[Rfam]
RNA sequence: GACUUAUCGAGAGAGGCAGAGGGACUGACCCGAUGAUGCCCGGCAACCCGUUUGUUAGCCAAGCAAACGAAGGUGCUAAUUUCAGCAGAAUGAUUUCAUUCUGGAAGAUAAGCG
Numbered sequence: 001g002a003c004u005u006a007u008c009g010a011g012a013g014a015g016g017c018a019g020a021g022g023g024a025c026u027g028a029c030c031c032g033a034u035g036a037u038g039c040c041c042g043g044c045a046a047c048c049c050g051u052u053u054g055u056u057a058g059c060c061a062a063g064c065a066a067a068c069g070a071a072g073g074u075g076c077u078a079a080u081u082u083c084a085g086c087a088g089a090a091u092g093a094u095u096u097c098a099u100u101c102u103g104g105a106a107g108a109u110a111a112g113c114g
Base pairs, nucleotide, nucleotide: 003112004111005110006109007108008107013041015040016039017038021031022030023029025085026084027083028082042077043076044075045074047073048072049069050068051067052066053065054064055063081106086103087102088101089100090099091098
The family of this 114-nucleotide RNA from Halalkalibacterium halodurans is "SAM riboswitch aptamer (S box leader)". The source organism's lineage runs through Bacteria, Bacillota, Bacilli, Caryophanales and Halalkalibacterium halodurans.